[Rfam]
RNA sequence: UAUUUGAAUACGGGAGAGAUCACAAUUAAUGUGGCACCGAAGGAGCAACUACCCAGGAAACUCUCAGGUAAAAGGACCGUAACAUAUUA
Numbered sequence: 001u002a003u004u005u006g007a008a009u010a011c012g013g014g015a016g017a018g019a020u021c022a023c024a025a026u027u028a029a030u031g032u033g034g035c036a037c038c039g040a041a042g043g044a045g046c047a048a049c050u051a052c053c054c055a056g057g058a059a060a061c062u063c064u065c066a067g068g069u070a071a072a073a074g075g076a077c078c079g080u081a082a083c084a085u086a087u088u089a
Stems, first nucleotide, its partner, number of pairs: 009081005020034004036069003039065002043063003049056002
Background:
Shown here is an 89-nucleotide RNA sequence from Pelagibacterales bacterium SAG-MED04, a member of the family "Glycine riboswitch aptamer".